Rfam assigns this 105-nucleotide sequence from Prunus yedoensis to the family "MIR6274 microRNA precursor family".
RNA sequence: GGAUGUCACUUUUUGCUACCCCCGGCCAAUAACACAAUAACACGUGAAAUAACUUUUUCAUGUGUCAUUGUGUUAUUGGUCAGAGAUAGCAAAACAAUGCUAUCC
Numbered sequence: 001g002g003a004u005g006u007c008a009c010u011u012u013u014u015g016c017u018a019c020c021c022c023c024g025g026c027c028a029a030u031a032a033c034a035c036a037a038u039a040a041c042a043c044g045u046g047a048a049a050u051a052a053c054u055u056u057u058u059c060a061u062g063u064g065u066c067a068u069u070g071u072g073u074u075a076u077u078g079g080u081c082a083g084a085g086a087u088a089g090c091a092a093a094a095c096a097a098u099g100c101u102a103u104c105c
Base pairs, nucleotide, nucleotide: 002104003103004102005101011094012093013092014091015090016089017088018087022083024081025080026079027078028077029076030075031074032073033072034071035070036069037068038067040065041064042063043062044061045060046059047058048057049056

The family has 2 seed sequences and 342 matches in Rfam 15.1. The base pairs follow the family's consensus structure, which was predicted with RNAalifold. Rfam links the family to the GO terms miRNA-mediated post-transcriptional gene silencing and RISC complex.